[Rfam]
RNA: Ribosomal protein L19 leader
RNA sequence: CCGAUGUUCCGCUGCAAUCAAUCGCUUUUGUAAGAGCAUCUG
Number, nucleotide and partner (000 for none) at each position: 001c000002c000003g040004a039005u038006g037007u036008u035009c034010c000011g000012c000013u032014g031015c030016a029017a028018u000019c000020a000021a000022u000023c000024g000025c000026u000027u000028u017029u016030g015031u014032a013033a000034g009035a008036g007037c006038a005039u004040c003041u000042g000